[Rfam]
RNA: terC RNA
Organism: Labrys okinawensis
RNA sequence: GCCGGUUACCGGGCCCCUCUGACGGUUAGCGCAAGCAUGCCGUGAUGUCGGAGCCGGCU
Numbered sequence: 001g002c003c004g005g006u007u008a009c010c011g012g013g014c015c016c017c018u019c020u021g022a023c024g025g026u027u028a029g030c031g032c033a034a035g036c037a038u039g040c041c042g043u044g045a046u047g048u049c050g051g052a053g054c055c056g057g058c059u
Stems, first nucleotide, its partner, number of pairs: 004055002009051004022043005029036001